Rfam assigns this 82-nucleotide RNA sequence from Menidia menidia to the family "Small nucleolar RNA SNORD79". The organism belongs to Menidia, within Eukaryota. From the family's description: snoRNA U79 or Z22 is found in intron 7 of the gas5 gene in humans and is also present in mice. The family's consensus secondary structure was predicted with PFOLD. Rfam links the family to the GO terms RNA processing and nucleolus. By type it is a C/D-box small nucleolar RNA.
RNA sequence: GGCUGUGAAUGAUGACUUUGUUUUGAAAACAUUGGGAAUCUCUCUGAAAAAAGUGAAAGACGACUUUGUUUCUGAUGCAGUG
Numbered sequence: 001g002g003c004u005g006u007g008a009a010u011g012a013u014g015a016c017u018u019u020g021u022u023u024u025g026a027a028a029a030c031a032u033u034g035g036g037a038a039u040c041u042c043u044c045u046g047a048a049a050a051a052a053g054u055g056a057a058a059g060a061c062g063a064c065u066u067u068g069u070u071u072c073u074g075a076u077g078c079a080g081u082g
Stems, first nucleotide, its partner, number of pairs: 002081006
Dot-bracket structure: .((((((....................................................................)))))).